This 133-nucleotide RNA from Spinacia oleracea belongs to the Rfam family "MIR319 microRNA precursor family". The family has 11 seed sequences and 168 matches in Rfam 15.1. Its family is annotated with RISC complex and miRNA-mediated post-transcriptional gene silencing in the Gene Ontology.
RNA sequence: CAGAAAUAGGGGUUCCUUGCAGCCCAAAGAAAGCACAAUAUGUCAAUAUGGGUAUUUUCAUACAUAAUAUAAUGCUAUGAUAUGAUAUAAACAUGUUUGUGUGGCUUUGGACUGAAGGGAGCUCCUAAUUCUU
Dot-bracket structure: ......((((((((((((..((.(((((.............................................................................))))).))..))))))))))))......